The record is a 118-nucleotide sequence from Aerococcus kribbianus, which matches "FMN riboswitch aptamer (RFN element)" in Rfam. Taxonomically the source falls in Aerococcus (Bacteria, Bacillati, Bacilli, Aerococcaceae). The RFN element is a highly conserved domain that is found frequently in the 5'-untranslated regions of prokaryotic mRNAs that encode for flavin mononucleotide (FMN) biosynthesis and transport proteins. This element is a metabolite-dependent riboswitch that directly binds FMN in the absence of proteins. In Bacillus subtilis, the riboswitch most likely controls gene expression by causing premature transcription termination within the 5' untranslated region of the ribDEAHT operon and precluding access to the ribosome-binding site of ypaA mRNA.The FMN riboswitch structure, reported in present an FMN-bound six-stem junction, adopts a butterfly-like scaffold, stapled together by opposingly directed but nearly identically folded peripheral domains. The family has 146 seed sequences and 6,230 matches in Rfam 15.1. A search with the family's covariance model found it, with a score of 113 bits.
[Rfam]
RNA sequence: UUAAAUCUUCAGGGCAGGGUGAAAUUCCCGAUCGGCGGUAAAGUCCGCGACUCGCGUCAGCGAUUGAUCUAGUGUGAUUCUAGAACCGACUGUAUAGUCAGGAUGGAAGAAGAUGGAU
Numbered sequence: 001u002u003a004a005a006u007c008u009u010c011a012g013g014g015c016a017g018g019g020u021g022a023a024a025u026u027c028c029c030g031a032u033c034g035g036c037g038g039u040a041a042a043g044u045c046c047g048c049g050a051c052u053c054g055c056g057u058c059a060g061c062g063a064u065u066g067a068u069c070u071a072g073u074g075u076g077a078u079u080c081u082a083g084a085a086c087c088g089a090c091u092g093u094a095u096a097g098u099c100a101g102g103a104u105g106g107a108a109g110a111a112g113a114u115g116g117a118u
Stems, first nucleotide, its partner, number of pairs: 005114006017029003031098002033088002035048004043086002052063002068084005090101003